[Rfam]
RNA: mir-460 microRNA precursor family
Organism: Xenopus tropicalis
RNA sequence: CUCUACAUUGUCCUCAUUGUACAUGCUGUGUGUAUCUAUUUCUCUUACACAGCGCAUGCAAUGUGGAUAUAUUGGAU
Numbered sequence: 001c002u003c004u005a006c007a008u009u010g011u012c013c014u015c016a017u018u019g020u021a022c023a024u025g026c027u028g029u030g031u032g033u034a035u036c037u038a039u040u041u042c043u044c045u046u047a048c049a050c051a052g053c054g055c056a057u058g059c060a061a062u063g064u065g066g067a068u069a070u071a072u073u074g075g076a077u
Stems, first nucleotide, its partner, number of pairs: 012066002015063007024054001026052006